[Rfam]
RNA sequence: UAAGUAGAAUGGAUGAUCGCGGCUGCAAGUGUCGAAAGACCGCAGGUGAGGAAAGUCCGGGCUUCACAGGGCAGGAUGCCAGAUAACGUCUGGUGGAGGUGACUCCAAGGCUAGUGCAACAGAAAUAUACCGCCGGUAAUACCGGUAAGGUUGGAAGGGCAGUGUAAGAGACUACCGCUGUCUUGGUAACAAGACAGGCAUAUGUAAACCCCAUCCGAAGCAAGACCGAACAUAAGCAUACAGUGGCCCGCUGGCUUUAGGUAGGUUGCUUGAGUUCUAUGGCGACGUAGAACCUAGAUAGAUGAUUAUCCAAGACAUGACCCGGCUUAUAGUUCUGCUCACGAU
Numbered sequence: 001u002a003a004g005u006a007g008a009a010u011g012g013a014u015g016a017u018c019g020c021g022g023c024u025g026c027a028a029g030u031g032u033c034g035a036a037a038g039a040c041c042g043c044a045g046g047u048g049a050g051g052a053a054a055g056u057c058c059g060g061g062c063u064u065c066a067c068a069g070g071g072c073a074g075g076a077u078g079c080c081a082g083a084u085a086a087c088g089u090c091u092g093g094u095g096g097a098g099g100u101g102a103c104u105c106c107a108a109g110g111c112u113a114g115u116g117c118a119a120c121a122g123a124a125a126u127a128u129a130c131c132g133c134c135g136g137u138a139a140u141a142c143c144g145g146u147a148a149g150g151u152u153g154g155a156a157g158g159g160c161a162g163u164g165u166a167a168g169a170g171a172c173u174a175c176c177g178c179u180g181u182c183u184u185g186g187u188a189a190c191a192a193g194a195c196a197g198g199c200a201u202a203u204g205u206a207a208a209c210c211c212c213a214u215c216c217g218a219a220g221c222a223a224g225a226c227c228g229a230a231c232a233u234a235a236g237c238a239u240a241c242a243g244u245g246g247c248c249c250g251c252u253g254g255c256u257u258u259a260g261g262u263a264g265g266u267u268g269c270u271u272g273a274g275u276u277c278u279a280u281g282g283c284g285a286c287g288u289a290g291a292a293c294c295u296a297g298a299u300a301g302a303u304g305a306u307u308a309u310c311c312a313a314g315a316c317a318u319g320a321c322c323c324g325g326c327u328u329a330u331a332g333u334u335c336u337g338c339u340c341a342c343g344a345u
Stems, first nucleotide, its partner, number of pairs: 001341001003339008011330001012310007020048002023045004053328003057325005062220004069249004074216005079093005094108001095106004109211002114209002116205003130150002132146006158176002161173003177199001178197008224267004234258002236255001241253004274293008
Dot-bracket structure: (.((((((((((((((((.((.((((...............)))).))....[[[.[[[[[((((...[[[[.((((((((((.....)))))(((((....)))).)((...(((((...........((((((((...))))))..)).......((.(((.......))).))(((((((((....)))))))).)...)))..)))))))))))))...((((......(((....((((.]]]])))).).)).....))))......((((((((....))))))))..........)))))))..........]]]]]]]].).)))))))).)....
Rfam assigns this 345-nucleotide sequence from Candidatus Galacturonatibacter soehngenii to the family "Bacterial RNase P class A". The match comes from Rfam's covariance-model search (282 bits). Lineage of the source: Bacteria > Bacillati > Clostridia > Lachnospiraceae > Candidatus Galacturonatibacter. The family's consensus secondary structure is taken from published work.